[Rfam]
RNA sequence: CCCUUAUAACGAGUAGACGAGGGAUACGGCCCAGCGACUCUACAGCAACCAGCGCAAGCCAGGUGCUCCAUCCGAACAGAUAAGGA
Numbered sequence: 001c002c003c004u005u006a007u008a009a010c011g012a013g014u015a016g017a018c019g020a021g022g023g024a025u026a027c028g029g030c031c032c033a034g035c036g037a038c039u040c041u042a043c044a045g046c047a048a049c050c051a052g053c054g055c056a057a058g059c060c061a062g063g064u065g066c067u068c069c070a071u072c073c074g075a076a077c078a079g080a081u082a083a084g085g086a
Base pairs, nucleotide, nucleotide: 002085003084004083005082006081007080013043014042015041016040017039021032022031023030027074028073029072044067045066046065047064049063050062052059053058071078

Record summary
The record is an 86-nucleotide RNA from Planococcaceae bacterium Storch 2/2-2, which matches "SAM riboswitch aptamer (S box leader)" in Rfam. The base pairs follow the family's consensus structure, which is taken from published work. The match comes from Rfam's covariance-model search (48 bits). Rfam describes the family as follows. The SAM riboswitch is found upstream of a number of genes which code for proteins involved in methionine or cysteine biosynthesis in Gram-positive bacteria.